[Rfam]
RNA sequence: UUUCCAGUCAGGGUCCUGGCUAAUAUCCAGCCUGUAGCUGGAAUUAGUCAAACCCUGACUGUAAA
Numbered sequence: 001u002u003u004c005c006a007g008u009c010a011g012g013g014u015c016c017u018g019g020c021u022a023a024u025a026u027c028c029a030g031c032c033u034g035u036a037g038c039u040g041g042a043a044u045u046a047g048u049c050a051a052a053c054c055c056u057g058a059c060u061g062u063a064a065a
Base pairs, nucleotide, nucleotide: 007059008058009057011055012054013053014052017050018049019048020047021046022045023044024043027041028040029039030038031037
A member of the RNA family "mir-344 microRNA precursor family" from Cricetulus griseus, 65 nucleotides long. Taxonomically the source falls in Cricetulus (Eukaryota, Dipnotetrapodomorpha, Amniota, Muroidea). Rfam links the family to the GO terms miRNA-mediated post-transcriptional gene silencing and RISC complex. The literature on the family includes a 2010 paper in BMC Genomics by Linsen et al., "Small RNA expression and strain specificity in the rat".